[Rfam]
RNA: Glutamine-II riboswitch aptamer
RNA sequence: GUACGUUCAUCCCUUCAGGGACGCAUAACUUGCCUGGCAUGGAACGGGGCCAGGG
Numbered sequence: 001g002u003a004c005g006u007u008c009a010u011c012c013c014u015u016c017a018g019g020g021a022c023g024c025a026u027a028a029c030u031u032g033c034c035u036g037g038c039a040u041g042g043a044a045c046g047g048g049g050c051c052a053g054g055g
Stems, first nucleotide, its partner, number of pairs: 004046005010021004033054006